[Rfam]
RNA sequence: AAGUGAUAUGAUGGUAUACCAUCUUUCGGGACUGACCUGAAAUGGAGAGAACUCUUAACACUGAUCACUU
Number, nucleotide and partner (000 for none) at each position: 001a070002a069003g068004u067005g066006a065007u000008a000009u000010g000011a000012u000013g000014g000015u000016a000017u000018a000019c000020c000021a000022u000023c000024u000025u000026u000027c000028g000029g000030g000031a000032c000033u000034g000035a000036c000037c000038u000039g000040a000041a000042a000043u000044g000045g000046a000047g000048a000049g000050a000051a000052c000053u000054c000055u000056u000057a000058a000059c000060a000061c000062u000063g000064a000065u006066c005067a004068c003069u002070u001